[Rfam]
Glutamine riboswitch aptamer (glnA leader): a 79-nucleotide RNA from Leptolyngbya sp. BL0902. It scores 50 bits against the family's covariance model.
RNA sequence: UUCGUUCAUCUCUCUCGCUCAUCUCAACUGGAUCAGAGAGGGACGGAAGUAGGGGUUGAUCCCCCCGAAGGAACGCGCC
Numbered sequence: 001u002u003c004g005u006u007c008a009u010c011u012c013u014c015u016c017g018c019u020c021a022u023c024u025c026a027a028c029u030g031g032a033u034c035a036g037a038g039a040g041g042g043a044c045g046g047a048a049g050u051a052g053g054g055g056u057u058g059a060u061c062c063c064c065c066c067g068a069a070g071g072a073a074c075g076c077g078c079c
Stems, first nucleotide, its partner, number of pairs: 003075005009043008046076001052066003